[Rfam]
RNA sequence: AUACUAUGAUGGUUGCAUAGUUCAGCAGAUAGAAUAAUGAAGAAUACGUAACCUUAUUGUCUGAUGUGUCU
Numbered sequence: 001a002u003a004c005u006a007u008g009a010u011g012g013u014u015g016c017a018u019a020g021u022u023c024a025g026c027a028g029a030u031a032g033a034a035u036a037a038u039g040a041a042g043a044a045u046a047c048g049u050a051a052c053c054u055u056a057u058u059g060u061c062u063g064a065u066g067u068g069u070c071u
Stems, first nucleotide, its partner, number of pairs: 001069004006038002009035002013028004043058004

A member of the RNA family "Small nucleolar RNA SNORD77" from Vombatus ursinus, 71 nucleotides long.
About the family: U77 belongs to the C/D family of snoRNAs. It is predicted to guide 2'O-ribose methylation of large 28S rRNA subunit at position A1521.
For this family Rfam cites "Guide RNAs with 5' caps and novel box C/D snoRNA-like domains for modification of snRNAs in metazoa" (Tycowski et al., Curr Biol, 2004).
Gene Ontology terms of the family: nucleolus and RNA processing.
Clan: SNORD77 clan.
The family's consensus secondary structure was predicted with RNAalifold.